[Rfam]
RNA: mir-1251 microRNA precursor family
RNA sequence: UGGACUCUAGCUGCCAAAGGCGCUUCUCCUUCUGAACAGAGCGCUUUGCUCAGCCAGUGUAGACAU
Numbered sequence: 001u002g003g004a005c006u007c008u009a010g011c012u013g014c015c016a017a018a019g020g021c022g023c024u025u026c027u028c029c030u031u032c033u034g035a036a037c038a039g040a041g042c043g044c045u046u047u048g049c050u051c052a053g054c055c056a057g058u059g060u061a062g063a064c065a066u
Stems, first nucleotide, its partner, number of pairs: 004060002007057002010054004017047009027035002